[Rfam]
RNA sequence: AGGCGCCCGGAAGCGCUGUGGCAGUCGAUCAUCGUAUGCUGCCGCCAGCGACUCCGGGCGCG
Dot-bracket structure: .(.(((.......((((((((((((((.....))...)))))))).)))).......)))).

The family of this 62-nucleotide sequence from Pseudomonas kuykendallii is "gabT RNA". It scores 52 bits against the family's covariance model. Rfam classes the family as a cis-regulatory element.